A member of the RNA family "mir-365 microRNA precursor family" from Albula goreensis, 86 nucleotides long. A search with the family's covariance model found it, with a score of 103 bits. NCBI's taxonomy places the organism under Eukaryota, Bilateria, Actinopteri, Teleostei, Albula. On this family, see Xie et al., Nature 2005: "Systematic discovery of regulatory motifs in human promoters and 3' UTRs by comparison of several mammals". Its family is annotated with RISC complex and miRNA-mediated post-transcriptional gene silencing in the Gene Ontology.

[Rfam]
RNA sequence: AAGCAAGAUAAGUGAGGGACUUUUAGGGGCAGCUGUGUUUCAUUAACUCAGUCAUAAUGCCCCUAAAAAUCCUUACUGCUCUUGCA
Dot-bracket structure: ..............(((((.(((.(((((((..((((...............)))).))))))).))).)))))............